[Rfam]
RNA sequence: CGGGUUGGCCGGAUGAUCGCGGCAUGCACCGCAUGUCGAGGAAAGUCCGUACUCCAUAGAGCACGAAACCGGGGAAACCUCGGGACGGGGUAACCUGUCGGAUAGGGCCACAGAAACAUACCGCCUUUCGGGGUAAGGGUGAAAUGGUGGUGUAAGAGACCACCGGGAACCGCAGUAAUGCGUUCGCCGGGCAACCCCUUUCGGGAGCAAGGUUAAACAGAUGCCUGGUCUCCACAGGCCGCUCACCUGGCCGGCGCAAGCCGGCGGCGUCAGGUAAACCGCUCAGACAGAUGAUCAUACAGGCAGGCUUUGCCUGCCGGACAGAAUACGGCUUAUAGACCAACCCGGGUU
Numbered sequence: 001c002g003g004g005u006u007g008g009c010c011g012g013a014u015g016a017u018c019g020c021g022g023c024a025u026g027c028a029c030c031g032c033a034u035g036u037c038g039a040g041g042a043a044a045g046u047c048c049g050u051a052c053u054c055c056a057u058a059g060a061g062c063a064c065g066a067a068a069c070c071g072g073g074g075a076a077a078c079c080u081c082g083g084g085a086c087g088g089g090g091u092a093a094c095c096u097g098u099c100g101g102a103u104a105g106g107g108c109c110a111c112a113g114a115a116a117c118a119u120a121c122c123g124c125c126u127u128u129c130g131g132g133g134u135a136a137g138g139g140u141g142a143a144a145u146g147g148u149g150g151u152g153u154a155a156g157a158g159a160c161c162a163c164c165g166g167g168a169a170c171c172g173c174a175g176u177a178a179u180g181c182g183u184u185c186g187c188c189g190g191g192c193a194a195c196c197c198c199u200u201u202c203g204g205g206a207g208c209a210a211g212g213u214u215a216a217a218c219a220g221a222u223g224c225c226u227g228g229u230c231u232c233c234a235c236a237g238g239c240c241g242c243u244c245a246c247c248u249g250g251c252c253g254g255c256g257c258a259a260g261c262c263g264g265c266g267g268c269g270u271c272a273g274g275u276a277a278a279c280c281g282c283u284c285a286g287a288c289a290g291a292u293g294a295u296c297a298u299a300c301a302g303g304c305a306g307g308c309u310u311u312g313c314c315u316g317c318c319g320g321a322c323a324g325a326a327u328a329c330g331g332c333u334u335a336u337a338g339a340c341c342a343a344c345c346c347g348g349g350u351u
Stems, first nucleotide, its partner, number of pairs: 001347008010338001011336001013298006020038008043334003047331005052207004061257002064203005069083005084099001086097004100198002105196002107192003121138002123134004146164006166187001167185003171182004211280004220271006251264005
This 351-nucleotide sequence from Pelolinea submarina belongs to the Rfam family "Bacterial RNase P class A". Pairs were carried over by alignment from the consensus structure, which is taken from published work. The match comes from Rfam's covariance-model search (221 bits).